[Rfam]
RNA sequence: GCUAUCGAACGACCGGGUGCCACGCUGUGCUCUCUCGGUACAACAAAUGAGUGAACACAGCUGGUGGUAUCUCAGUUGUUCCCUAGUU
Numbered sequence: 001g002c003u004a005u006c007g008a009a010c011g012a013c014c015g016g017g018u019g020c021c022a023c024g025c026u027g028u029g030c031u032c033u034c035u036c037g038g039u040a041c042a043a044c045a046a047a048u049g050a051g052u053g054a055a056c057a058c059a060g061c062u063g064g065u066g067g068u069a070u071c072u073c074a075g076u077u078g079u080u081c082c083c084u085a086g087u088u
Base pairs, nucleotide, nucleotide: 008079011076015073016071017070019068020067022065023064025060026059027058029056031054032053
The record is an 88-nucleotide sequence from Bicyclus anynana, which matches "mir-317 microRNA precursor family" in Rfam.
NCBI's taxonomy places the organism under Eukaryota, Eumetazoa, Ecdysozoa, Ditrysia, Bicyclus.
Rfam links the family to the GO terms RISC complex and miRNA-mediated post-transcriptional gene silencing.
Rfam 15.1 lists 153 matches to the family in 144 species.
For this family Rfam cites "Systematic discovery and characterization of fly microRNAs using 12 Drosophila genomes" (Stark et al., Genome Res, 2007).